[Rfam]
RNA: Ribosomal S15 leader
RNA sequence: CGUUUUGGCUGAAUUAGUGAUCGGCUAAAGCAUCUUUUAAAUUUAUUUUUGGAGUCAUUAUGUCACUAAGUACUCAACAAAAAGCUGAAAUUCUAGCUAAAUUCGCACGCGCUGAA
Numbered sequence: 001c002g003u004u005u006u007g008g009c010u011g012a013a014u015u016a017g018u019g020a021u022c023g024g025c026u027a028a029a030g031c032a033u034c035u036u037u038u039a040a041a042u043u044u045a046u047u048u049u050u051g052g053a054g055u056c057a058u059u060a061u062g063u064c065a066c067u068a069a070g071u072a073c074u075c076a077a078c079a080a081a082a083a084g085c086u087g088a089a090a091u092u093c094u095a096g097c098u099a100a101a102u103u104c105g106c107a108c109g110c111g112c113u114g115a116a
Base pairs, nucleotide, nucleotide: 007026008025009024010023011022012021048070049069050068051067052066054064